[Rfam]
RNA sequence: GGCAGUUCUCAGGUGAAGCACCCUGGAAUCGGGCUCCCUCCCCUCUGGUUCUGGGGUGCGUCACCCGAGAACUGCC
Numbered sequence: 001g002g003c004a005g006u007u008c009u010c011a012g013g014u015g016a017a018g019c020a021c022c023c024u025g026g027a028a029u030c031g032g033g034c035u036c037c038c039u040c041c042c043c044u045c046u047g048g049u050u051c052u053g054g055g056g057u058g059c060g061u062c063a064c065c066c067g068a069g070a071a072c073u074g075c076c
Stems, first nucleotide, its partner, number of pairs: 002075002005072006012065005019058005025052009